[Rfam]
RNA sequence: GUGCCCCCUGUGAGCUUCCCUUUGUCAUCCUAUGCCUGAGCCAUGUCCGGAGGCUGGGACGCUGAAGGGAUGCCCACGGGCAGCCACC
Numbered sequence: 001g002u003g004c005c006c007c008c009u010g011u012g013a014g015c016u017u018c019c020c021u022u023u024g025u026c027a028u029c030c031u032a033u034g035c036c037u038g039a040g041c042c043a044u045g046u047c048c049g050g051a052g053g054c055u056g057g058g059a060c061g062c063u064g065a066a067g068g069g070a071u072g073c074c075c076a077c078g079g080g081c082a083g084c085c086a087c088c
Stems, first nucleotide, its partner, number of pairs: 017070006024063001028059005034054004
The record is an 88-nucleotide RNA from Ramphastos sulfuratus, which matches "mir-204 microRNA precursor family" in Rfam. Taxonomically the source falls in Ramphastos (Eukaryota, Metazoa, Teleostomi, Sauropsida). Gene Ontology terms of the family: miRNA-mediated post-transcriptional gene silencing and RISC complex. The base pairs follow the family's consensus structure, which was predicted with RNAalifold.